[Rfam]
RNA: Group II catalytic intron D1-D4-1
Nucleotides: 086
Base pairs, nucleotide, nucleotide: 001030002029005024008021009020010019011018012017046053047052055086056085064079065078066077068075
Number, partner (000 for none) and nucleotide at each position: 001030c002029g003000c004000c005024u006000u007000a008021u009020g010019c011018c012017u013000g014000a015000a016000a017012g018011g019010g020009c021008g022000a023000c024005g025000g026000u027000g028000u029002c030001g031000a032000g033000c034000c035000g036000g037000a038000g039000c040000g041000a042000g043000a044000a045000g046053u047052c048000a049000g050000c051000a052047g053046a054000g055086g056085c057000c058000a059000u060000a061000g062000u063000a064079g065078c066077u067000g068075c069000c070000u071000g072000u073000a074000u075068g076000g077066g078065g079064c080000g081000a082000a083000g084000u085056g086055c